[Rfam]
The family of this 89-nucleotide RNA from Caryophanon tenue is "BsrC".
It scores 60 bits against the family's covariance model.
Rfam classes the family as a small RNA.
On this family, see Saito et al., Gene 2008: "Novel small RNA-encoding genes in the intergenic regions of Bacillus subtilis".
Rfam's curators write: The 301 nucleotide sequence from Kouji Nakamura has been trimmed to a highly conserved ~85 nucleotide long core to form this family.

RNA sequence: UCUAACUUAAGCAACGCAAACCCUACCUACUUUUGCGUCCUUGCAGCCCCGAAGCAUGCGCCAGUGUGAAUAAGUAUGUUCAAAAAUAU
Numbered sequence: 001u002c003u004a005a006c007u008u009a010a011g012c013a014a015c016g017c018a019a020a021c022c023c024u025a026c027c028u029a030c031u032u033u034u035g036c037g038u039c040c041u042u043g044c045a046g047c048c049c050c051g052a053a054g055c056a057u058g059c060g061c062c063a064g065u066g067u068g069a070a071u072a073a074g075u076a077u078g079u080u081c082a083a084a085a086a087u088a089u
Stems, first nucleotide, its partner, number of pairs: 036068002040064002042060004046055002